[Rfam]
RNA: Small nucleolar RNA R64/Z200 family
RNA sequence: AUUUUGCAAUGAUGAAAUACGAAUAAUUCACAUGUCAGACUUCAAAGAUUUUGUUAUCAAAAUCAGUGAGCAUGAAACUUGUAAUAUUUUGUAUAUA
Numbered sequence: 001a002u003u004u005u006g007c008a009a010u011g012a013u014g015a016a017a018u019a020c021g022a023a024u025a026a027u028u029c030a031c032a033u034g035u036c037a038g039a040c041u042u043c044a045a046a047g048a049u050u051u052u053g054u055u056a057u058c059a060a061a062a063u064c065a066g067u068g069a070g071c072a073u074g075a076a077a078c079u080u081g082u083a084a085u086a087u088u089u090u091g092u093a094u095a096u097a
Base pairs, nucleotide, nucleotide: 003095005093006092007091047064048063049062050061051060052059
Dot-bracket structure: ..(.(((.......................................((((((......))))))..........................))).)..